Shown here is a 163-nucleotide RNA from Turnera subulata, a member of the family "U1 spliceosomal RNA". The organism belongs to Turnera, within Eukaryota. It is annotated as a spliceosomal small nuclear RNA.
RNA sequence: AUACUUACCUGGACGGGGUCAAUGGGCGACCAAGAAGGCCCAUGGCCUAGGUUAGUGGCCUCCAUUGCACUUAAGGAGGAGCACCCGCCUAAGGUCUCCUCAUAGCAGGAGAGCCUACGUCAUAAUUUGUGGCAGCGGGGGCCUGCGUUCGCGCGGCCCCUAC
Numbered sequence: 001a002u003a004c005u006u007a008c009c010u011g012g013a014c015g016g017g018g019u020c021a022a023u024g025g026g027c028g029a030c031c032a033a034g035a036a037g038g039c040c041c042a043u044g045g046c047c048u049a050g051g052u053u054a055g056u057g058g059c060c061u062c063c064a065u066u067g068c069a070c071u072u073a074a075g076g077a078g079g080a081g082c083a084c085c086c087g088c089c090u091a092a093g094g095u096c097u098c099c100u101c102a103u104a105g106c107a108g109g110a111g112a113g114c115c116u117a118c119g120u121c122a123u124a125a126u127u128u129g130u131g132g133c134a135g136c137g138g139g140g141g142c143c144u145g146c147g148u149u150c151g152c153g154c155g156g157c158c159c160c161u162a163c
Stems, first nucleotide, its partner, number of pairs: 012121004016048006023042005049090003053087001055084003060079002062076002092116003095112003099108002137161004144155004